[Rfam]
RNA sequence: GAGCAAUGAUGAAAAGGUUUUACUACUGACCUUUGCAACUCUGAAGGCUCCUACACUUGACCUGAACUCA
Numbered sequence: 001g002a003g004c005a006a007u008g009a010u011g012a013a014a015a016g017g018u019u020u021u022a023c024u025a026c027u028g029a030c031c032u033u034u035g036c037a038a039c040u041c042u043g044a045a046g047g048c049u050c051c052u053a054c055a056c057u058u059g060a061c062c063u064g065a066a067c068u069c070a
Base pairs, nucleotide, nucleotide: 001069002068003067013034014033015032016031017030018029019028

Small nucleolar RNA U2-30: a 70-nucleotide sequence from Octodon degus. Rfam 15.1 lists 664 matches to the family in 136 species. It scores 90 bits against the family's covariance model. Gene Ontology terms of the family: nucleolus and RNA processing.